[Rfam]
RNA sequence: GCUGCUGCUUGCACCUGCUGCUGGCGCCCGGUGCUGGCCCCGAUCACUUGGUGCCAUCAGCGGGUGCAAGCGGCAGCUG
Numbered sequence: 001g002c003u004g005c006u007g008c009u010u011g012c013a014c015c016u017g018c019u020g021c022u023g024g025c026g027c028c029c030g031g032u033g034c035u036g037g038c039c040c041c042g043a044u045c046a047c048u049u050g051g052u053g054c055c056a057u058c059a060g061c062g063g064g065u066g067c068a069a070g071c072g073g074c075a076g077c078u079g
Base pairs, nucleotide, nucleotide: 004074005073006072007071008070009069010068011067012066013065014064015063016062017061018060019059020058022056023055024054025053026052027051028050
The record is a 79-nucleotide sequence from Myotis myotis, which matches "mir-9198 microRNA precursor family" in Rfam.